[Rfam]
RNA: pan motif
RNA sequence: AGGACGGCAUCCGUGCAAGUUUCCGGAGCCGUACCGGAAAUAAAGCUCGAUUUGGUUUAAAACCAUAAGAAAUUUUAAGGCCGCUUGGAUCCGCUCAGGACCGAGACGGACGG
Numbered sequence: 001a002g003g004a005c006g007g008c009a010u011c012c013g014u015g016c017a018a019g020u021u022u023c024c025g026g027a028g029c030c031g032u033a034c035c036g037g038a039a040a041u042a043a044a045g046c047u048c049g050a051u052u053u054g055g056u057u058u059a060a061a062a063c064c065a066u067a068a069g070a071a072a073u074u075u076u077a078a079g080g081c082c083g084c085u086u087g088g089a090u091c092c093g094c095u096c097a098g099g100a101c102c103g104a105g106a107c108g109g110a111c112g113g
Stems, first nucleotide, its partner, number of pairs: 002035002004032005010027004081109003084105005090100003